Shown here is a 134-nucleotide sequence from Dasypus novemcinctus, a member of the family "Small nucleolar RNA SNORA84". Its family is annotated with RNA processing and nucleolus in the Gene Ontology. Rfam 15.1 lists 757 matches to the family in 629 species.

RNA sequence: GCCCUGUGGUUGCUGGAUGCUGUUGUGCAAGUACAGCUCUCCAGUGCAUAGCAGUGGGCCAGAGCAAUCCUGUGGUUUAUGCAUGGGGUCUGCUCUCCCUCAGCAGUCGCCAUAGCCCGGCCACUGGCACAUGG
Numbered sequence: 001g002c003c004c005u006g007u008g009g010u011u012g013c014u015g016g017a018u019g020c021u022g023u024u025g026u027g028c029a030a031g032u033a034c035a036g037c038u039c040u041c042c043a044g045u046g047c048a049u050a051g052c053a054g055u056g057g058g059c060c061a062g063a064g065c066a067a068u069c070c071u072g073u074g075g076u077u078u079a080u081g082c083a084u085g086g087g088g089u090c091u092g093c094u095c096u097c098c099c100u101c102a103g104c105a106g107u108c109g110c111c112a113u114a115g116c117c118c119g120g121c122c123a124c125u126g127g128c129a130c131a132u133g134g
Base pairs, nucleotide, nucleotide: 001059002058003057004056007050008049011046012045013044014043015042016041017040019037020036021035022034023033070126072124073123074122075121076120077119081116082115083113084112085111086110088108090106091105092104093103094102